[Rfam]
RNA: Alpha operon ribosome binding site
RNA sequence: AAGAAGUAGCAACCGCAACGUAUCCUCAACGGGCUUUGUUGUGGUGGAUUUCUUUAUUUAAAGUACUAGGAGUGAAUAGUGGCCCGUAUAGCAGGCAUUAACAUUCCUGAU
Numbered sequence: 001a002a003g004a005a006g007u008a009g010c011a012a013c014c015g016c017a018a019c020g021u022a023u024c025c026u027c028a029a030c031g032g033g034c035u036u037u038g039u040u041g042u043g044g045u046g047g048a049u050u051u052c053u054u055u056a057u058u059u060a061a062a063g064u065a066c067u068a069g070g071a072g073u074g075a076a077u078a079g080u081g082g083c084c085c086g087u088a089u090a091g092c093a094g095g096c097a098u099u100a101a102c103a104u105u106c107c108u109g110a111u
Stems, first nucleotide, its partner, number of pairs: 004054003008050002010047001012045002024095003030086004039109001